[Rfam]
RNA sequence: UCGGAUGCACCGCCGAGUCGUUGCGGGCGUGGGGAAGAUGUCCGCUGCGAGCCGGGGACCCAUGUGUGUGGGGUGAAUCGACGCGUCAGCGUCGUAGGGCGCCUACGGCCCGAACCCGUCAGCUCACCCGGUAGGCGCCUGAGGACAACACA
Numbered sequence: 001u002c003g004g005a006u007g008c009a010c011c012g013c014c015g016a017g018u019c020g021u022u023g024c025g026g027g028c029g030u031g032g033g034g035a036a037g038a039u040g041u042c043c044g045c046u047g048c049g050a051g052c053c054g055g056g057g058a059c060c061c062a063u064g065u066g067u068g069u070g071g072g073g074u075g076a077a078u079c080g081a082c083g084c085g086u087c088a089g090c091g092u093c094g095u096a097g098g099g100c101g102c103c104u105a106c107g108g109c110c111c112g113a114a115c116c117c118g119u120c121a122g123c124u125c126a127c128c129c130g131g132u133a134g135g136c137g138c139c140u141g142a143g144g145a146c147a148a149c150a151c152a
Base pairs, nucleotide, nucleotide: 011137012136013135014134018050019049020048051132052131053130054129055128056127061070062069071117072116073115079094080093081092082091097111098110099109100108